[Rfam]
RNA sequence: UUUGAGGUAUAAAGUGUUUAGCUGACUUGGGGAAGUGAUCAAUCAUUGGGAUAAAAUUAAAUUUGCUUCUUUUUUCCUCAAAAACUUUUUACUGCGGGUAAAAAAAAAAUUAUUGGGGUAUAAAAAGAUCCAAAUUUAGAUUUAACCCAAAGGUUGAUGGUGUCUUUUCCCCCAAGAAGGCUGCUCACUAUUUACCCAAA
Numbered sequence: 001u002u003u004g005a006g007g008u009a010u011a012a013a014g015u016g017u018u019u020a021g022c023u024g025a026c027u028u029g030g031g032g033a034a035g036u037g038a039u040c041a042a043u044c045a046u047u048g049g050g051a052u053a054a055a056a057u058u059a060a061a062u063u064u065g066c067u068u069c070u071u072u073u074u075u076c077c078u079c080a081a082a083a084a085c086u087u088u089u090u091a092c093u094g095c096g097g098g099u100a101a102a103a104a105a106a107a108a109a110u111u112a113u114u115g116g117g118g119u120a121u122a123a124a125a126a127g128a129u130c131c132a133a134a135u136u137u138a139g140a141u142u143u144a145a146c147c148c149a150a151a152g153g154u155u156g157a158u159g160g161u162g163u164c165u166u167u168u169c170c171c172c173c174a175a176g177a178a179g180g181c182u183g184c185u186c187a188c189u190a191u192u193u194a195c196c197c198a199a200a
Stems, first nucleotide, its partner, number of pairs: 003198002006196004011191001013189004019183005026176006032169004038161004042154003046150005052144004057139009068128006074120001076118006086104008
This 200-nucleotide RNA from Medicago truncatula belongs to the Rfam family "MIR2670 microRNA precursor family".
Pairs were carried over by alignment from the consensus structure, which was predicted with RNAalifold.
NCBI's taxonomy places the organism under Eukaryota, Spermatophyta, Magnoliopsida, Fabaceae, Medicago.
Rfam 15.1 lists 188 matches to the family in 2 species.
A search with the family's covariance model found it, with a score of 154 bits.